[Rfam]
RNA sequence: CAGGACUUAGCUCACUCUGUGAACAGAUCUCGGAUAUCCUAUGUUCACAGUGGCUAAGUUCCGCU
Numbered sequence: 001c002a003g004g005a006c007u008u009a010g011c012u013c014a015c016u017c018u019g020u021g022a023a024c025a026g027a028u029c030u031c032g033g034a035u036a037u038c039c040u041a042u043g044u045u046c047a048c049a050g051u052g053g054c055u056a057a058g059u060u061c062c063g064c065u
Base pairs, nucleotide, nucleotide: 003061004060005059006058007057008056009055010054011053012052019048020047021046022045023044024043025042
RNA: mir-27 microRNA precursor family
Organism: Ictalurus punctatus